[Rfam]
RNA sequence: UCGAAUGAUGAUUAUAAUCUUUGGUCCGUGUUUAUGAGGUGGCCUCAAGACCCACCGUAUGAGUGACAAAGAAGAUUCAAAUAAAAUUUCUGAUUGA
Dot-bracket structure: ((((.........................................................................................))))

Record summary:
The family of this 97-nucleotide RNA from Australozyma monospora is "Small nucleolar RNA SNORD18". A reference for the family is Giorgi et al. (2001), "Release of U18 snoRNA from its host intron requires interaction of Nop1p with the Rnt1p endonuclease", EMBO J. The family's RNA type in Rfam is C/D-box small nucleolar RNA. The source organism's lineage runs through Eukaryota, Fungi, Pichiomycetes, Metschnikowiaceae and Australozyma.